[Rfam]
Shown here is a 137-nucleotide RNA sequence from Cicer arietinum, a member of the family "small nucleolar RNA snoR134".

RNA sequence: UAGCACGAUGCCUCCCGGGCUUCUCUGAUAAAUUUCAUGACGCGAAAGCCCCGAUGCACGUGCUACAUCGAUGCCGUUCGUGUUGCAGUUCUGCCUAAUUCUCACGGCGGAUCUGUGUCAAAGCAAUGGCUAAAUAU
Numbered sequence: 001u002a003g004c005a006c007g008a009u010g011c012c013u014c015c016c017g018g019g020c021u022u023c024u025c026u027g028a029u030a031a032a033u034u035u036c037a038u039g040a041c042g043c044g045a046a047a048g049c050c051c052c053g054a055u056g057c058a059c060g061u062g063c064u065a066c067a068u069c070g071a072u073g074c075c076g077u078u079c080g081u082g083u084u085g086c087a088g089u090u091c092u093g094c095c096u097a098a099u100u101c102u103c104a105c106g107g108c109g110g111a112u113c114u115g116u117g118u119c120a121a122a123g124c125a126a127u128g129g130c131u132a133a134a135u136a137u
Stems, first nucleotide, its partner, number of pairs: 003063005010057002017051005022045002025042001073130006081120002084117005093108003

A search with the family's covariance model found it, with a score of 96 bits. For this family Rfam cites "Mining small RNA sequencing data: a new approach to identify small nucleolar RNAs in Arabidopsis" (Chen and Wu, Nucleic Acids Res, 2009). Pairs were carried over by alignment from the consensus structure, which was predicted with RNAalifold.